[Rfam]
Nucleotides: 063
Base pairs, nucleotide, nucleotide: 010063011062012061013060016057017056018055019054020053021052024050025049032044033043034042035041036040
Number, partner (000 for none) and nucleotide at each position: 001000c002000u003000g004000g005000g006000a007000a008000c009000a010063g011062c012061a013060c014000g015000g016057c017056c018055g019054c020053a021052a022000a023000u024050c025049u026000g027000a028000c029000u030000u031000u032044g033043c034042c035041c036040a037000u038000c039000g040036u041035g042034g043033g044032c045000u046000u047000u048000g049025a050024g051000a052021u053020u054019g055018c056017g057016g058000a059000a060013g061012u062011g063010u
Rfam assigns this 63-nucleotide RNA sequence to the family "S15-Halobacteria ribosomal protein leader". It is one of the family's seed sequences. The family's consensus secondary structure is taken from published work.